Rfam assigns this 140-nucleotide RNA sequence from Podarcis muralis to the family "Small nucleolar RNA SNORD10". NCBI's taxonomy places the organism under Eukaryota, Eumetazoa, Bilateria, Squamata, Podarcis. A reference for the family is Huttenhofer et al. (2001), "RNomics: an experimental approach that identifies 201 candidates for novel, small, non-messenger RNAs in mouse", EMBO J.

RNA sequence: GUUCUGUGAUGAUCUCCCAUGCGUGUCAUCUGACUCCCAUCAACCCCCCAUAUUUCCCUCCCGGUUGGCGUUCUGCUGUGCUGGGAGAGAAAGGUGCGGGUUUCGGAAGUGAUCAUAGCUCUUAAAAGAUUCCUGAGAAC
Numbered sequence: 001g002u003u004c005u006g007u008g009a010u011g012a013u014c015u016c017c018c019a020u021g022c023g024u025g026u027c028a029u030c031u032g033a034c035u036c037c038c039a040u041c042a043a044c045c046c047c048c049c050a051u052a053u054u055u056c057c058c059u060c061c062c063g064g065u066u067g068g069c070g071u072u073c074u075g076c077u078g079u080g081c082u083g084g085g086a087g088a089g090a091a092a093g094g095u096g097c098g099g100g101u102u103u104c105g106g107a108a109g110u111g112a113u114c115a116u117a118g119c120u121c122u123u124a125a126a127a128g129a130u131u132c133c134u135g136a137g138a139a140c
Base pairs, nucleotide, nucleotide: 001140002139003138004137045100046099047098049096050095051094

A search with the family's covariance model found it, with a score of 59 bits.
By type it is a C/D-box small nucleolar RNA.
Its family is annotated with nucleolus and RNA processing in the Gene Ontology.